[Rfam]
The record is a 156-nucleotide sequence, which matches "RT-16 RNA" in Rfam. The family's RNA type in Rfam is small RNA.
RNA sequence: UCUUAGUUUGACCAUGGUUUAGCUAGGGCCACACGCCUUUUGCUUAUGCUCCUAGGGCGUCAAAUGCAAACACGACAUUAAGUAAAAAUUAGCUAUUAAGCAAAUUUGAAAUAUGAAGUGUUGGUGGUUUUACUUUCAAGCAGAAGGCUACAUAGU
Numbered sequence: 001u002c003u004u005a006g007u008u009u010g011a012c013c014a015u016g017g018u019u020u021a022g023c024u025a026g027g028g029c030c031a032c033a034c035g036c037c038u039u040u041u042g043c044u045u046a047u048g049c050u051c052c053u054a055g056g057g058c059g060u061c062a063a064a065u066g067c068a069a070a071c072a073c074g075a076c077a078u079u080a081a082g083u084a085a086a087a088a089u090u091a092g093c094u095a096u097u098a099a100g101c102a103a104a105u106u107u108g109a110a111a112u113a114u115g116a117a118g119u120g121u122u123g124g125u126g127g128u129u130u131u132a133c134u135u136u137c138a139a140g141c142a143g144a145a146g147g148c149u150a151c152a153u154a155g156u
Base pairs, nucleotide, nucleotide: 001028002027003026004025005024006023007022008021010019011018012017035148036147037146038145039144040143041142042141043140044139069122070121071120072119073118076115077114078113085107086106